[Rfam]
Annotation
Shown here is a 91-nucleotide sequence from a Pseudomonadota bacterium, a member of the family "Manganese Mn2+ riboswitch aptamer (yybP-ykoY)". It scores 47 bits against the family's covariance model. The source organism's lineage runs through Bacteria, Pseudomonadati and Pseudomonadota.
RNA sequence: CCUAGAGGCGUUGGGGAGUAGUCAUCCAUCUGGAUAUUGAGUCGACACACUGGGAAUAUCCCCGGCUCAAUAGCAAGCCUUCAGGCUUGUC
Numbered sequence: 001c002c003u004a005g006a007g008g009c010g011u012u013g014g015g016g017a018g019u020a021g022u023c024a025u026c027c028a029u030c031u032g033g034a035u036a037u038u039g040a041g042u043c044g045a046c047a048c049a050c051u052g053g054g055a056a057u058a059u060c061c062c063c064g065g066c067u068c069a070a071u072a073g074c075a076a077g078c079c080u081u082c083a084g085g086c087u088u089g090u091c
Base pairs, nucleotide, nucleotide: 026033027032035072036071037070038069039068040067041066042065043064044063052062053061054060055059073090074089075088076087077086078085079084
The pairing is the family consensus, mapped onto this sequence.